[Rfam]
RNA sequence: UAGCUUAUUUGAUCACCCAAGCAAUUGGGUGAAGGCUGGCGGUUUUUUAACCGUCGGCCU
Numbered sequence: 001u002a003g004c005u006u007a008u009u010u011g012a013u014c015a016c017c018c019a020a021g022c023a024a025u026u027g028g029g030u031g032a033a034g035g036c037u038g039g040c041g042g043u044u045u046u047u048u049a050a051c052c053g054u055c056g057g058c059c060u
Base pairs, nucleotide, nucleotide: 014031015030016029017028018027034059035058036057037056038055039054040053041052042051043050

Description: Shown here is a 60-nucleotide RNA sequence from Shewanella denitrificans, a member of the family "Pseudomonas sRNA P26". Pairs were carried over by alignment from the consensus structure, which was predicted with RNAalifold. A search with the family's covariance model found it, with a score of 47 bits. From the family's description: This small RNA (sRNA) was computationally identified in the genome of the opportunistic pathogen Pseudomonas aeruginosa and its expression verified by northern blot analysis. P26 is conserved across many Gammaproteobacteria species and appears to be consistently located between the DNA directed RNA polymerase (beta subunit) and 50S ribosomal protein L7/L12 genes.